ylbH leader: a 122-nucleotide RNA from Thermoactinomyces sp. AS95. Its family is annotated with regulation of gene expression in the Gene Ontology. For this family Rfam cites "New RNA motifs suggest an expanded scope for riboswitches in bacterial genetic control" (Barrick et al., Proc Natl Acad Sci U S A, 2004). Taxonomically the source falls in Thermoactinomyces (Bacteria, Bacillati, Caryophanales, Thermoactinomycetaceae). The family's RNA type in Rfam is cis-regulatory leader.
RNA sequence: AAAAAAAAUGGCUCGCCUCAAUAGCGAGCCCCAUGUUUCUUACGCAUCCAUGCGUAAGUCUUCAAUGGGAGAGGAGAAACCGGAGGAAGAGCUUAUUGGGGAAACGUAAGUCUUCUCCGCGG
Numbered sequence: 001a002a003a004a005a006a007a008a009u010g011g012c013u014c015g016c017c018u019c020a021a022u023a024g025c026g027a028g029c030c031c032c033a034u035g036u037u038u039c040u041u042a043c044g045c046a047u048c049c050a051u052g053c054g055u056a057a058g059u060c061u062u063c064a065a066u067g068g069g070a071g072a073g074g075a076g077a078a079a080c081c082g083g084a085g086g087a088a089g090a091g092c093u094u095a096u097u098g099g100g101g102a103a104a105c106g107u108a109a110g111u112c113u114u115c116u117c118c119g120c121g122g
Stems, first nucleotide, its partner, number of pairs: 011029006030069005040057006081119004086115004091111005